[Rfam]
RNA: mir-306 microRNA precursor family
RNA sequence: ACACGCUGCAGCUCAGGUACUUAGUGACUCUCAAUCACAUAUUGCUUUGCAUACUUUGAGGGUCGCUCUGUGCCUGUGCCGCCCGUGU
Dot-bracket structure: (((((...(.((.(((((((..(((((((((((((...............))....)))))))))))..))))))).)).)..)))))
Numbered sequence: 001a002c003a004c005g006c007u008g009c010a011g012c013u014c015a016g017g018u019a020c021u022u023a024g025u026g027a028c029u030c031u032c033a034a035u036c037a038c039a040u041a042u043u044g045c046u047u048u049g050c051a052u053a054c055u056u057u058g059a060g061g062g063u064c065g066c067u068c069u070g071u072g073c074c075u076g077u078g079c080c081g082c083c084c085g086u087g088u
Stems, first nucleotide, its partner, number of pairs: 001088005009081001011079002014076007023067011034052002